[Rfam]
RNA sequence: AAUGAGAGAAUGACAAAUCAGAUUUUCCUCUUAAUUUUCAGCAUUUUUCUCCUAAAAAUGUUCAAAUCAAACUAAAAAUACUAAAAAUCUCAGCAGGAAAAUUUUGAUUUGUCAUUCUCCCAUC
Numbered sequence: 001a002a003u004g005a006g007a008g009a010a011u012g013a014c015a016a017a018u019c020a021g022a023u024u025u026u027c028c029u030c031u032u033a034a035u036u037u038u039c040a041g042c043a044u045u046u047u048u049c050u051c052c053u054a055a056a057a058a059u060g061u062u063c064a065a066a067u068c069a070a071a072c073u074a075a076a077a078a079u080a081c082u083a084a085a086a087a088u089c090u091c092a093g094c095a096g097g098a099a100a101a102u103u104u105u106g107a108u109u110u111g112u113c114a115u116u117c118u119c120c121c122a123u124c
Stems, first nucleotide, its partner, number of pairs: 002123003006119017023101007031093002034088005040082002044078004

Description
A member of the RNA family "MIR7504 microRNA precursor family" from Gossypium barbadense, 124 nucleotides long. The family has 8 seed sequences and 7,343 matches in Rfam 15.1. Lineage of the source: Eukaryota > Streptophyta > Streptophytina > Gunneridae > Gossypium. Its family is annotated with RISC complex and miRNA-mediated post-transcriptional gene silencing in the Gene Ontology.